RNA sequence: GGAAGCGUUUUCUAUCCGGUGAUAGGCCCGGUCUUCAAAACCGGUGGUAGGUCGAGAGGUCUACGGUAGGUUCGACUCCUAUACGCUUCC
Numbered sequence: 001g002g003a004a005g006c007g008u009u010u011u012c013u014a015u016c017c018g019g020u021g022a023u024a025g026g027c028c029c030g031g032u033c034u035u036c037a038a039a040a041c042c043g044g045u046g047g048u049a050g051g052u053c054g055a056g057a058g059g060u061c062u063a064c065g066g067u068a069g070g071u072u073c074g075a076c077u078c079c080u081a082u083a084c085g086c087u088u089c090c
Base pairs, nucleotide, nucleotide: 001090002089003088004087005086006085007084008083011026012025013024014023015022016021028044029043030042031041032040047064048063049062050061051060067081068080069079070078
RNA: Selenocysteine transfer RNA
Organism: Nitratidesulfovibrio vulgaris